[Rfam]
RNA sequence: AUAUACCCACGUACACUCCGAUUCUUCCACGCGGCCGCAUCCACCUGACGACUGCUCGCUACGUUCCGUUAGGC
Numbered sequence: 001a002u003a004u005a006c007c008c009a010c011g012u013a014c015a016c017u018c019c020g021a022u023u024c025u026u027c028c029a030c031g032c033g034g035c036c037g038c039a040u041c042c043a044c045c046u047g048a049c050g051a052c053u054g055c056u057c058g059c060u061a062c063g064u065u066c067c068g069u070u071a072g073g074c
Stems, first nucleotide, its partner, number of pairs: 002015001004013003019033002022031001045072006
RNA: Xanthomonas sRNA sX9